[Rfam]
RNA sequence: AUGCUCGGCGUGUGAUGAGAACUGUGUUGGUAGGGACAUCUGAGACGGUGAUGAAUGCCAACGUAUCUGAGCUGGGCAU
Numbered sequence: 001a002u003g004c005u006c007g008g009c010g011u012g013u014g015a016u017g018a019g020a021a022c023u024g025u026g027u028u029g030g031u032a033g034g035g036a037c038a039u040c041u042g043a044g045a046c047g048g049u050g051a052u053g054a055a056u057g058c059c060a061a062c063g064u065a066u067c068u069g070a071g072c073u074g075g076g077c078a079u
Base pairs, nucleotide, nucleotide: 001079002078003077004076005075
RNA: Small nucleolar RNA SNORD74